[Rfam]
RNA sequence: AGCAAGGCCGCUGACCGACGGAAAUACGUGGGGUUCACCACGGGGGACGCGGCACCACAACUUGCUGCUUAAGCCGACCGUCUGGGCUGCAUAC
Numbered sequence: 001a002g003c004a005a006g007g008c009c010g011c012u013g014a015c016c017g018a019c020g021g022a023a024a025u026a027c028g029u030g031g032g033g034u035u036c037a038c039c040a041c042g043g044g045g046g047a048c049g050c051g052g053c054a055c056c057a058c059a060a061c062u063u064g065c066u067g068c069u070u071a072a073g074c075c076g077a078c079c080g081u082c083u084g085g086g087c088u089g090c091a092u093a094c
Stems, first nucleotide, its partner, number of pairs: 007053005015045002017082005028041004072088004

ZMP/ZTP riboswitch aptamer (pfl RNA motif): a 94-nucleotide sequence from Gemmiger formicilis. NCBI's taxonomy places the organism under Bacteria, Bacillati, Clostridia, Eubacteriales, Gemmiger.